[Rfam]
RNA sequence: CAGUAUUCAGUAGCAGCGUCUACUAAUAGUG
Numbered sequence: 001c002a003g004u005a006u007u008c009a010g011u012a013g014c015a016g017c018g019u020c021u022a023c024u025a026a027u028a029g030u031g
Stems, first nucleotide, its partner, number of pairs: 001031002004028004009024005014018001